[Rfam]
RNA sequence: CCCCUUCCGCGACGCGCCGGUUGCUCCUAUAUUGGCUCUGCCGGCUUGCCGGCUAUGGCGAUAAAUGGCCGUCGUAAUAAACCUUUCGGACCCGGGGGCGGUACCCGGCGCCUCCACCCGAGCCCAGACAUGGCGCGUCAGCGUCUCGCGGCUGGGCUCCGGCGGGGGCGAAAUAGGAUCGACGAGGGCGUAAAGGACGCGCUUUUGCCCGGCAUGGUUCCGCCGUUAUCGGGCCACUGCAAUAGUUGCCAACGACAACUAUGCUCCGGUUGCUCAGGCCGCGUAAGCGGUUUGAAAAACCGACUCUCAAGUCCUGACGGGUAGCACCGGCAGGCGGGGUUCGGAGGCACCUGGCAACAGAAGCCUCCACU
Numbered sequence: 001c002c003c004c005u006u007c008c009g010c011g012a013c014g015c016g017c018c019g020g021u022u023g024c025u026c027c028u029a030u031a032u033u034g035g036c037u038c039u040g041c042c043g044g045c046u047u048g049c050c051g052g053c054u055a056u057g058g059c060g061a062u063a064a065a066u067g068g069c070c071g072u073c074g075u076a077a078u079a080a081a082c083c084u085u086u087c088g089g090a091c092c093c094g095g096g097g098g099c100g101g102u103a104c105c106c107g108g109c110g111c112c113u114c115c116a117c118c119c120g121a122g123c124c125c126a127g128a129c130a131u132g133g134c135g136c137g138u139c140a141g142c143g144u145c146u147c148g149c150g151g152c153u154g155g156g157c158u159c160c161g162g163c164g165g166g167g168g169c170g171a172a173a174u175a176g177g178a179u180c181g182a183c184g185a186g187g188g189c190g191u192a193a194a195g196g197a198c199g200c201g202c203u204u205u206u207g208c209c210c211g212g213c214a215u216g217g218u219u220c221c222g223c224c225g226u227u228a229u230c231g232g233g234c235c236a237c238u239g240c241a242a243u244a245g246u247u248g249c250c251a252a253c254g255a256c257a258a259c260u261a262u263g264c265u266c267c268g269g270u271u272g273c274u275c276a277g278g279c280c281g282c283g284u285a286a287g288c289g290g291u292u293u294g295a296a297a298a299a300c301c302g303a304c305u306c307u308c309a310a311g312u313c314c315u316g317a318c319g320g321g322u323a324g325c326a327c328c329g330g331c332a333g334g335c336g337g338g339g340u341u342c343g344g345a346g347g348c349a350c351c352u353g354g355c356a357a358c359a360g361a362a363g364c365c366u367c368c369a370c371u
Base pairs, nucleotide, nucleotide: 040053041052042051043050044049057209058208059207060206061205067202070199071198072197073196082188083187084186086185087184088183092108093107094106095105096104109170110169111168112167113166114165115164210225211224212223213222215236216235217234219233220232221231337352338351339350340349343368344367345366346365347364348363